A member of the RNA family "R2 RNA element" from Drosophila willistoni, 201 nucleotides long. The literature on the family includes a 2004 paper in RNA by Ruschak et al., "Secondary structure models of the 3' untranslated regions of diverse R2 RNAs". Pairs were carried over by alignment from the consensus structure, which is taken from published work. The organism belongs to Sophophora, within Eukaryota. Its family is annotated with regulation of reverse transcription in the Gene Ontology. This family represents the 3' UTR region of the R2 retrotransposable element. The family's RNA type in Rfam is cis-regulatory element.
[Rfam]
RNA sequence: AUGUACUAACCUCUAGUUUCUCUUAUACUUUUGCCGGCAUUCCAUCUAAAAAGGUACAAACAUCGCAUUGUCAAAAAGAGGUGGUUUUAGUACGUAGGCGCUGUGGGACUUCAUUGUCCCGAUGAUGCAGCGAAUCGUGCAUACAAGAUUGUUCAGUAGUUGGUUGCUCGUAUCUUUAGAAGAUUUCCUUCCUCGGUGAUC
Number, nucleotide and partner (000 for none) at each position: 001a000002u000003g000004u000005a000006c000007u000008a000009a000010c000011c000012u000013c000014u000015a000016g000017u000018u000019u000020c000021u000022c000023u000024u000025a000026u000027a000028c000029u000030u000031u000032u056033g055034c054035c053036g000037g000038c000039a000040u000041u000042c000043c000044a000045u000046c000047u000048a000049a000050a000051a000052a000053g035054g034055u033056a032057c000058a000059a000060a000061c000062a200063u199064c198065g197066c196067a000068u000069u000070g000071u000072c000073a000074a000075a000076a000077a000078g194079a193080g192081g191082u000083g188084g187085u000086u000087u000088u000089a000090g140091u139092a138093c137094g136095u000096a000097g000098g000099c132100g131101c130102u129103g128104u127105g120106g119107g118108a117109c116110u000111u000112c000113a000114u000115u000116g109117u108118c107119c106120c105121g000122a000123u000124g000125a000126u000127g104128c103129a102130g101131c100132g099133a000134a000135u000136c094137g093138u092139g091140c090141a000142u172143a171144c170145a000146a168147g167148a000149u000150u000151g000152u000153u000154c000155a000156g000157u000158a000159g000160u000161u000162g000163g000164u000165u000166g000167c147168u146169c000170g144171u143172a142173u000174c000175u000176u000177u000178a000179g000180a000181a000182g000183a000184u000185u000186u000187c084188c083189u000190u000191c081192c080193u079194c078195g000196g066197u065198g064199a063200u062201c000